[Rfam]
RNA: Small nucleolar RNA Z107/R87
Nucleotides: 109
Stems, first nucleotide, its partner, number of pairs: 002108005
Number, partner (000 for none) and nucleotide at each position: 001000g002108a003107u004106u005105g006104c007000a008000g009000u010000g011000a012000u013000g014000a015000c016000u017000c018000c019000a020000u021000a022000a023000a024000a025000u026000u027000c028000a029000a030000g031000c032000u033000c034000a035000a036000c037000a038000g039000a040000c041000c042000g043000g044000a045000u046000u047000g048000c049000a050000g051000g052000u053000u054000u055000u056000u057000c058000u059000c060000g061000g062000u063000c064000g065000a066000g067000g068000a069000a070000a071000a072000u073000u074000a075000u076000u077000u078000g079000c080000g081000u082000g083000u084000c085000g086000a087000u088000a089000c090000a091000c092000c093000c094000g095000c096000u097000g098000a099000g100000c101000u102000g103000a104006g105005c106004a107003a108002u109000a